[Rfam]
RNA sequence: AUGAGAGCAAGGGGAGAGACUACAAAUUGUAGCGCCGAAGGAGCAAGUGGCAACACGAAUCUCUCAGGCAAAAGAACUCUUGCUUGACG
Numbered sequence: 001a002u003g004a005g006a007g008c009a010a011g012g013g014g015a016g017a018g019a020c021u022a023c024a025a026a027u028u029g030u031a032g033c034g035c036c037g038a039a040g041g042a043g044c045a046a047g048u049g050g051c052a053a054c055a056c057g058a059a060u061c062u063c064u065c066a067g068g069c070a071a072a073a074g075a076a077c078u079c080u081u082g083c084u085u086g087a088c089g
Stems, first nucleotide, its partner, number of pairs: 006084008020032004034069003037065002041063003047056002

Rfam assigns this 89-nucleotide sequence from Anoxybacillus sp. B7M1 to the family "Glycine riboswitch aptamer". The base pairs follow the family's consensus structure. The organism belongs to Anoxybacillus, within Bacteria.